[Rfam]
RNA sequence: AGCCUCCUGGUGCUUACCACAGGCUGCAUUCUUACACUGCCCGUACAGAAAGAGGAGACAGAGUAAAUCCACCCAUAUACACCCCAGCCCAGGUGCUUUGUGCCUGGUCUGUAUUGUGAAUGGGGAGACAUGG
Number, nucleotide and partner (000 for none) at each position: 001a000002g059003c000004c057005u056006c055007c054008u053009g000010g000011u000012g000013c000014u000015u000016a000017c000018c000019a000020c043021a000022g041023g000024c000025u000026g037027c000028a000029u034030u000031c000032u000033u000034a029035c000036a000037c026038u000039g000040c000041c022042c000043g020044u000045a000046c000047a000048g000049a000050a000051a000052g000053a008054g007055g006056a005057g004058a000059c002060a000061g000062a000063g000064u000065a000066a000067a000068u000069c000070c000071a000072c125073c123074c122075a121076u120077a000078u000079a000080c000081a000082c000083c000084c000085c111086a110087g109088c000089c107090c106091a105092g104093g103094u102095g000096c000097u000098u000099u000100g000101u000102g094103c093104c092105u091106g090107g089108u000109c087110u086111g085112u000113a000114u000115u000116g000117u000118g000119a000120a076121u075122g074123g073124g000125g072126a000127g000128a000129c000130a000131u000132g000133g000